[Rfam]
RNA: Small nucleolar RNA Z159/U59
Organism: Tetracentron sinense
RNA sequence: GUCUCUGAUGAUGAUACAGUGAAUACUUUCGUUCUUCCGAGUACACAUGUGGAAUGUUAUGGAGACCUGAAUUGAGGAGGU
Numbered sequence: 001g002u003c004u005c006u007g008a009u010g011a012u013g014a015u016a017c018a019g020u021g022a023a024u025a026c027u028u029u030c031g032u033u034c035u036u037c038c039g040a041g042u043a044c045a046c047a048u049g050u051g052g053a054a055u056g057u058u059a060u061g062g063a064g065a066c067c068u069g070a071a072u073u074g075a076g077g078a079g080g081u
Stems, first nucleotide, its partner, number of pairs: 003079004